Record summary
This 83-nucleotide sequence from Leptobrachium leishanense belongs to the Rfam family "let-7 microRNA precursor family". NCBI's taxonomy places the organism under Eukaryota, Teleostomi, Amphibia, Pelobatoidea, Leptobrachium. Its family is annotated with RISC complex and miRNA-mediated post-transcriptional gene silencing in the Gene Ontology. This family represents the microRNAs (miRNA) let-7 and mir-98. let-7 was identified from a study of developmental timing in C. elegans, and was later shown to be part of a much larger class of non-coding RNAs termed miRNAs.
[Rfam]
RNA sequence: UUCGGAUGAGGUAGUAGGUUGUUUAGUUUUUUUGGUCACACCCACUACUGGGAGAUAACUACACAAUCUACUGUCUUUCCUAA
Numbered sequence: 001u002u003c004g005g006a007u008g009a010g011g012u013a014g015u016a017g018g019u020u021g022u023u024u025a026g027u028u029u030u031u032u033u034g035g036u037c038a039c040a041c042c043c044a045c046u047a048c049u050g051g052g053a054g055a056u057a058a059c060u061a062c063a064c065a066a067u068c069u070a071c072u073g074u075c076u077u078u079c080c081u082a083a
Base pairs, nucleotide, nucleotide: 001083002082004080005079006078008077009076010075011074012073013072014071015070016069017068018067019066020065021064022063024061025060026059027058033044034043035042